[Rfam]
RNA sequence: GCCUCCCUGCGACCGCCGAAGCCUGACGUUCCUGCGUCAGAGAUUUAUGUAGGCGGCGUGGGGAGGA
Numbered sequence: 001g002c003c004u005c006c007c008u009g010c011g012a013c014c015g016c017c018g019a020a021g022c023c024u025g026a027c028g029u030u031c032c033u034g035c036g037u038c039a040g041a042g043a044u045u046u047a048u049g050u051a052g053g054c055g056g057c058g059u060g061g062g063g064a065g066g067a
Stems, first nucleotide, its partner, number of pairs: 002066010013055001015054003023040007
Dot-bracket structure: .((((((((((.(.(((.....(((((((....)))))))...........)))).)))))))))).
The record is a 67-nucleotide RNA, which matches "DUF3800-VIII RNA" in Rfam.
Bacteroidetes, Cyanobacteria, Firmicutes, Planctomycetes (1 example), Proteobacteria, Tenericutes (1 example).
It is one of the family's seed sequences.
The family's RNA type in Rfam is small RNA.